[Rfam]
RNA sequence: AUGCGCCUGUGGCGGGUCCGGCACAAAAUAUUAUAUUUUUUUAAACUAUAAAAAAAUAUACUUCGCAGGCAGUUAUUUUGUGUACGAUCUUGUACAUUCCAAUAAUUAAUUGGAAUUUAACUUCUUCU
Numbered sequence: 001a002u003g004c005g006c007c008u009g010u011g012g013c014g015g016g017u018c019c020g021g022c023a024c025a026a027a028a029u030a031u032u033a034u035a036u037u038u039u040u041u042u043a044a045a046c047u048a049u050a051a052a053a054a055a056a057u058a059u060a061c062u063u064c065g066c067a068g069g070c071a072g073u074u075a076u077u078u079u080g081u082g083u084a085c086g087a088u089c090u091u092g093u094a095c096a097u098u099c100c101a102a103u104a105a106u107u108a109a110u111u112g113g114a115a116u117u118u119a120a121c122u123u124c125u126u127c128u
Base pairs, nucleotide, nucleotide: 005070006069007068008067009066010065011064014090015089017087018086021083022082023081024080025079026078027077028076060073061072062071098114099113100112101111102110103109